RNA: MIR2629 microRNA precursor family
RNA sequence: GUUUUCAGUUUUCCUCGGUAGUUAACUACACCCAGUUCCAUAAUUCGGCAGUUAACUACCGAAGGACAU
Numbered sequence: 001g002u003u004u005u006c007a008g009u010u011u012u013c014c015u016c017g018g019u020a021g022u023u024a025a026c027u028a029c030a031c032c033c034a035g036u037u038c039c040a041u042a043a044u045u046c047g048g049c050a051g052u053u054a055a056c057u058a059c060c061g062a063a064g065g066a067c068a069u
Stems, first nucleotide, its partner, number of pairs: 012065002015062013029048001